[Rfam]
RNA sequence: UGCUGAUCUGAGUGUGGUGAUGUUUACAACUAAUUGAUCACAACCAGUUCCGGAUUCUUUUGUUCCUUCUCCACUCCCACUGCUUCACUUGACUAGCCUUAA
Number, nucleotide and partner (000 for none) at each position: 001u000002g097003c096004u095005g094006a000007u092008c091009u000010g090011a089012g000013u000014g086015u000016g081017g080018u079019g078020a000021u000022g076023u000024u000025u000026a000027c000028a064029a063030c062031u000032a060033a059034u000035u000036g000037a000038u000039c000040a000041c000042a000043a000044c000045c000046a000047g000048u000049u000050c000051c000052g000053g000054a000055u000056u000057c000058u000059u033060u032061u000062g030063u029064u028065c000066c000067u000068u000069c000070u000071c000072c000073a000074c000075u000076c022077c000078c019079a018080c017081u016082g000083c000084u000085u000086c014087a000088c000089u011090u010091g008092a007093c000094u005095a004096g003097c002098c000099u000100u000101a000102a000
RNA: Y RNA
Organism: Propithecus coquereli